The record is a 111-nucleotide sequence from Streptococcus dysgalactiae, which matches "Streptococcus sRNA SSRC41" in Rfam. Rfam's curators put it in the seed alignment. NCBI's taxonomy places the organism under Bacteria, Lactobacillales, Streptococcaceae, Streptococcus dysgalactiae, Streptococcus dysgalactiae subsp. equisimilis. By type it is a small RNA. Pairs were carried over by alignment from the consensus structure, which was predicted with CMfinder. For this family Rfam cites "Novel Regulatory Small RNAs in Streptococcus pyogenes" (Tesorero et al., PLoS One, 2013).
RNA sequence: AAGCUCUUCUGGAGCUUUUUUUCGUACCUUCUUGACUUGAAAUUCUUGUUUAUUAUUAAAAAAUGAGCUAUAAUAAAGCAUAGCACUUAAUUUUAGAAAGAAGGUGUAAGU
Numbered sequence: 001a002a003g004c005u006c007u008u009c010u011g012g013a014g015c016u017u018u019u020u021u022u023c024g025u026a027c028c029u030u031c032u033u034g035a036c037u038u039g040a041a042a043u044u045c046u047u048g049u050u051u052a053u054u055a056u057u058a059a060a061a062a063a064u065g066a067g068c069u070a071u072a073a074u075a076a077a078g079c080a081u082a083g084c085a086c087u088u089a090a091u092u093u094u095a096g097a098a099a100g101a102a103g104g105u106g107u108a109a110g111u
Stems, first nucleotide, its partner, number of pairs: 003079003007075001013069005019063004033048002083107006